[Rfam]
RNA sequence: GGCUAGCCUCAUGGCAGUGGGUUAUCAGAAUUUAUUAACACUGGUGUCACUAAAGUUGGUAUAUAAUCCCCCCCACUGCUAAAUUGGACUGGAUUUUA
Numbered sequence: 001g002g003c004u005a006g007c008c009u010c011a012u013g014g015c016a017g018u019g020g021g022u023u024a025u026c027a028g029a030a031u032u033u034a035u036u037a038a039c040a041c042u043g044g045u046g047u048c049a050c051u052a053a054a055g056u057u058g059g060u061a062u063a064u065a066a067u068c069c070c071c072c073c074c075a076c077u078g079c080u081a082a083a084u085u086g087g088a089c090u091g092g093a094u095u096u097u098a
Base pairs, nucleotide, nucleotide: 001094003092004091005090006089008087010086011085016077017076018075019074020073021072033061034060035059037057038056

Shown here is a 98-nucleotide sequence from Sapajus apella, a member of the family "Y RNA".
NCBI's taxonomy places the organism under Eukaryota, Metazoa, Deuterostomia, Tetrapoda, Sapajus.
By type it is a non-coding RNA gene.